This 111-nucleotide RNA from Brachypodium distachyon belongs to the Rfam family "MIR5185 microRNA precursor family". Taxonomically the source falls in Brachypodium (Eukaryota, Spermatophyta, Poaceae, Stipodae).
[Rfam]
RNA sequence: GAUUCCGCGAAGAGCCCGCUUCUAGUUUGUUUUCCAAAUCUUCUAUUCAAAAUUUUGCUCAAAAUUUGAAUGGGAGAUUUGAGAAUUGAACUAGAAGCGGGCCUUUCACGG
Numbered sequence: 001g002a003u004u005c006c007g008c009g010a011a012g013a014g015c016c017c018g019c020u021u022c023u024a025g026u027u028u029g030u031u032u033u034c035c036a037a038a039u040c041u042u043c044u045a046u047u048c049a050a051a052a053u054u055u056u057g058c059u060c061a062a063a064a065u066u067u068g069a070a071u072g073g074g075a076g077a078u079u080u081g082a083g084a085a086u087u088g089a090a091c092u093a094g095a096a097g098c099g100g101g102c103c104u105u106u107c108a109c110g111g
Stems, first nucleotide, its partner, number of pairs: 009107004014102016031085003035081008044072008053064004